[Rfam]
RNA sequence: UCAUUGGUCCAGAGGGGAGAUAGGUUCCUGUGAUUUUUCCUUCUUCUCUGUAGAAUAAAUGA
Numbered sequence: 001u002c003a004u005u006g007g008u009c010c011a012g013a014g015g016g017g018a019g020a021u022a023g024g025u026u027c028c029u030g031u032g033a034u035u036u037u038u039c040c041u042u043c044u045u046c047u048c049u050g051u052a053g054a055a056u057a058a059a060u061g062a
Base pairs, nucleotide, nucleotide: 001062002061003060004059005058008054009053010050011049012048013047014046015045016044017043018042022041023040024039
RNA: mir-198 microRNA precursor family
Organism: Pan paniscus